[Rfam]
RNA: serC leader
RNA sequence: CAGUGGGACACCUCUCCCCAACGAGAGGCAAUAUAUCUGUAAGGGUAGACAUU
Numbered sequence: 001c002a003g004u005g006g007g008a009c010a011c012c013u014c015u016c017c018c019c020a021a022c023g024a025g026a027g028g029c030a031a032u033a034u035a036u037c038u039g040u041a042a043g044g045g046u047a048g049a050c051a052u053u
Base pairs, nucleotide, nucleotide: 011028012027013026014025015024016023034047035046036045037044038043